The record is a 103-nucleotide RNA sequence from Sporolactobacillus inulinus, which matches "Purine riboswitch aptamer" in Rfam. The match comes from Rfam's covariance-model search (67 bits). The base pairs follow the family's consensus structure, which is taken from published work. Rfam describes the family as follows. Riboswitches are metabolite binding domains within certain messenger RNAs that serve as precision sensors for their corresponding targets. NCBI's taxonomy places the organism under Bacteria, Bacillati, Bacilli, Caryophanales, Sporolactobacillus inulinus.
RNA sequence: CGAAGAGACCUAUUAAGAAACCGUAUAAGUCUGCAAAUAGGGUGCGGACGUUUCUACGCGGCAACCGUAAAUUGCCUGCACUAUGGUGUUCUGAUCAUUCCGA
Numbered sequence: 001c002g003a004a005g006a007g008a009c010c011u012a013u014u015a016a017g018a019a020a021c022c023g024u025a026u027a028a029g030u031c032u033g034c035a036a037a038u039a040g041g042g043u044g045c046g047g048a049c050g051u052u053u054c055u056a057c058g059c060g061g062c063a064a065c066c067g068u069a070a071a072u073u074g075c076c077u078g079c080a081c082u083a084u085g086g087u088g089u090u091c092u093g094a095u096c097a098u099u100c101c102g103a
Stems, first nucleotide, its partner, number of pairs: 018089001020087006029049007058079002060076005